[Rfam]
RNA sequence: AUGAUACAUAUUAAACAUGCCUUCUAUUCACUGUGCCAUCUUACAUCCGUAGGUGAUCAGAGGGGAAAAGAAGAGCUAGAGCAACUCCCACACUCAUGAGCGUCCUCAUACUGUUCUGGGCGCUUCUCUCAGGUGCAUCUUUUAGCAUCUUUCAUUGGCCCAGAUCGGUAGCUGCGCAAGCGAGAUAUUC
Numbered sequence: 001a002u003g004a005u006a007c008a009u010a011u012u013a014a015a016c017a018u019g020c021c022u023u024c025u026a027u028u029c030a031c032u033g034u035g036c037c038a039u040c041u042u043a044c045a046u047c048c049g050u051a052g053g054u055g056a057u058c059a060g061a062g063g064g065g066a067a068a069a070g071a072a073g074a075g076c077u078a079g080a081g082c083a084a085c086u087c088c089c090a091c092a093c094u095c096a097u098g099a100g101c102g103u104c105c106u107c108a109u110a111c112u113g114u115u116c117u118g119g120g121c122g123c124u125u126c127u128c129u130c131a132g133g134u135g136c137a138u139c140u141u142u143u144a145g146c147a148u149c150u151u152u153c154a155u156u157g158g159c160c161c162a163g164a165u166c167g168g169u170a171g172c173u174g175c176g177c178a179a180g181c182g183a184g185a186u187a188u189u190c
Stems, first nucleotide, its partner, number of pairs: 019076002022072002031062002034059002037055005093184003097180001100177003111168003115164007123157001136145001
RNA: Small nucleolar RNA snR8